[Rfam]
RNA sequence: CUGACGGAAACGCAUGGGUCGAUGUCGGAAGCGACAGCCCGGCAAUGCUCCCCGACGCAAAAGUCGAGAAGGGGCAGCGCGUGACAGUCAG
Number, nucleotide and partner (000 for none) at each position: 001c091002u090003g089004a088005c087006g000007g000008a000009a000010a082011c081012g080013c079014a000015u041016g040017g039018g038019u000020c000021g000022a000023u036024g035025u034026c033027g032028g000029a000030a000031g000032c027033g026034a025035c024036a023037g000038c018039c017040c016041g015042g000043c000044a000045a000046u000047g075048c074049u073050c072051c071052c000053c066054g065055a064056c063057g000058c000059a000060a000061a000062a000063g056064u055065c054066g053067a000068g000069a000070a000071g051072g050073g049074g048075c047076a000077g000078c000079g013080c012081g011082u010083g000084a000085c000086a000087g005088u004089c003090a002091g001

The record is a 91-nucleotide sequence from Methanocella conradii, which matches "L4-Archaeoglobi ribosomal protein leades" in Rfam. The literature on the family includes a 2020 paper in BMC Microbiol by Eckert and Weinberg, "Discovery of 20 novel ribosomal leader candidates in bacteria and archaea".